This 313-nucleotide RNA sequence from Salarchaeum sp. JOR-1 belongs to the Rfam family "Archaeal RNase P". Rfam links the family to the GO terms tRNA processing, ribonuclease P activity and multimeric ribonuclease P complex. The family's consensus secondary structure is taken from published work. Rfam's curators write: Ribonuclease P (RNase P) is a ubiquitous endoribonuclease, found in archaea, bacteria and eukarya as well as chloroplasts and mitochondria. Its best characterised activity is the generation of mature 5'-ends of tRNAs by cleaving the 5'-leader elements of precursor-tRNAs. NCBI's taxonomy places the organism under Archaea, Methanobacteriati, Halobacteriales, Halobacteriaceae, Salarchaeum. It scores 170 bits against the family's covariance model.
[Rfam]
RNA sequence: GGCAGCGGGAGUCCGGCUCCCGUGCACAUGCAUGAGGAAAGUCCCCCCACCGCCCGAGCAGGCGGCCGGACACACGUCCGGAGCGGGAGACCGCUGGCACUGGAACAGACACGACACGCCUCCCGGCGACCGAGGACGUGCGCGACCCCCGACGCAAGAAGGGGAAGUGAACCCACAGAGGGCAGACCCGGGAGAACCGAUGGAACGGCCACCCCCGCCGGUGCAAGUCCGCGCGACGACGGUAGCUCGGGCACCCGCGCGGACGCUCAGCCGAAUGCCGGACCGAACAGAAGGGGGCUUACUCCCCGCAGCU
Numbered sequence: 001g002g003c004a005g006c007g008g009g010a011g012u013c014c015g016g017c018u019c020c021c022g023u024g025c026a027c028a029u030g031c032a033u034g035a036g037g038a039a040a041g042u043c044c045c046c047c048c049a050c051c052g053c054c055c056g057a058g059c060a061g062g063c064g065g066c067c068g069g070a071c072a073c074a075c076g077u078c079c080g081g082a083g084c085g086g087g088a089g090a091c092c093g094c095u096g097g098c099a100c101u102g103g104a105a106c107a108g109a110c111a112c113g114a115c116a117c118g119c120c121u122c123c124c125g126g127c128g129a130c131c132g133a134g135g136a137c138g139u140g141c142g143c144g145a146c147c148c149c150c151g152a153c154g155c156a157a158g159a160a161g162g163g164g165a166a167g168u169g170a171a172c173c174c175a176c177a178g179a180g181g182g183c184a185g186a187c188c189c190g191g192g193a194g195a196a197c198c199g200a201u202g203g204a205a206c207g208g209c210c211a212c213c214c215c216c217g218c219c220g221g222u223g224c225a226a227g228u229c230c231g232c233g234c235g236a237c238g239a240c241g242g243u244a245g246c247u248c249g250g251g252c253a254c255c256c257g258c259g260c261g262g263a264c265g266c267u268c269a270g271c272c273g274a275a276u277g278c279c280g281g282a283c284c285g286a287a288c289a290g291a292a293g294g295g296g297g298c299u300u301a302c303u304c305c306c307c308g309c310a311g312c313u
Base pairs, nucleotide, nucleotide: 001313002312003311005309006308007307008306009305010303011302012282013281014280015279016278017277021034022033023032024031025030039300040299041298043297044296045295046294047293048223049222050221051220054251055250058247061219062218063217064216065215066081067080068079069078070077082095083094084093085092086091096214097213101211102210103209117199118198120194121193122192123191124190125189126188138176139175227264228263229262230261231260232259233258234257235256